Rfam assigns this 43-nucleotide RNA from Nitrosomonas sp. Nm51 to the family "Guanidine-II riboswitch aptamer (mini-ykkC)". Rfam describes the family as follows. Simpler in structure and has fewer highly conserved nucleotide positions than the ykkC-yxkD leader. Despite this each of its two stem-loop structures directly bind free guanidine. Therefore, mini-ykkC RNA motif represents a distinct class of guanidine-sensing RNAs. Its crystal structure was also determined. The match comes from Rfam's covariance-model search (34 bits). The literature on the family includes a 2007 paper in Nucleic Acids Res by Weinberg et al., "Identification of 22 candidate structured RNAs in bacteria using the CMfinder comparative genomics pipeline".

RNA sequence: GUGAGGACGGCCUUACCUCUCUAUUUCAACUGGGACGACCCAA
Numbered sequence: 001g002u003g004a005g006g007a008c009g010g011c012c013u014u015a016c017c018u019c020u021c022u023a024u025u026u027c028a029a030c031u032g033g034g035a036c037g038a039c040c041c042a043a
Stems, first nucleotide, its partner, number of pairs: 001016006031042004